The record is a 54-nucleotide sequence from Bassecoia hookeri, which matches "Plastid-psbA-4 3UTR RNA" in Rfam. Plastid psbA-4 is a non-coding RNA (ncRNA) present in plastids. It was identified in inverted repeat sequences in the 3 prime untranslate region (3UTR) of photosystem II quinone-binding protein (psbA). The base pairs follow the family's consensus structure, which was predicted with LocARNA. By type it is a cis-regulatory element. The sequence is in the family's curated seed alignment. For this family Rfam cites "Retrograde signaling in plants: A critical review focusing on the GUN pathway and beyond" (Richter et al., Plant Commun, 2023). The source organism's lineage runs through Eukaryota, Magnoliopsida, Mesangiospermae, Dipsacales and Bassecoia.

[Rfam]
RNA sequence: AAGGGAGCAAUAAUCACCCUCUUGUUCUAUCAAGAGGGCGAUUAUUGCUCCCUU
Dot-bracket structure: ((((((((((((....(.((((((......)))))).)....))))))))))))